The family of this 64-nucleotide sequence from Sus scrofa is "MAT2A 3'UTR stem loop B". A reference for the family is Parker et al. (2011), "New families of human regulatory RNA structures identified by comparative analysis of vertebrate genomes", Genome Res. A search with the family's covariance model found it, with a score of 66 bits. It is annotated as a cis-regulatory element. The source organism's lineage runs through Eukaryota, Chordata, Vertebrata, Dipnotetrapodomorpha and Sus. The family's consensus secondary structure is taken from published work. The family has 28 seed sequences and 248 matches in Rfam 15.1.
RNA sequence: ACAGGCAGUUGGUACCCUCAUGAUAUCACACAGAGAAGUCACAGGGCAGUACCCGAGGGUCUGU
Numbered sequence: 001a002c003a004g005g006c007a008g009u010u011g012g013u014a015c016c017c018u019c020a021u022g023a024u025a026u027c028a029c030a031c032a033g034a035g036a037a038g039u040c041a042c043a044g045g046g047c048a049g050u051a052c053c054c055g056a057g058g059g060u061c062u063g064u
Base pairs, nucleotide, nucleotide: 001064002063003062004061005060006059009056012053016046017045018044021041022040023039024038026030